[Rfam]
RNA sequence: CGCAUAUCAGGAGAUGGCAUGCCUCCUUAAACCGCCACUGCACGUUCGCAGUGGCUGAUGAUGCCUACGCAGGG
Numbered sequence: 001c002g003c004a005u006a007u008c009a010g011g012a013g014a015u016g017g018c019a020u021g022c023c024u025c026c027u028u029a030a031a032c033c034g035c036c037a038c039u040g041c042a043c044g045u046u047c048g049c050a051g052u053g054g055c056u057g058a059u060g061a062u063g064c065c066u067a068c069g070c071a072g073g074g
Base pairs, nucleotide, nucleotide: 010026011025012024013023016065017064018063019062020061034055035054036053037052038051039050040049041048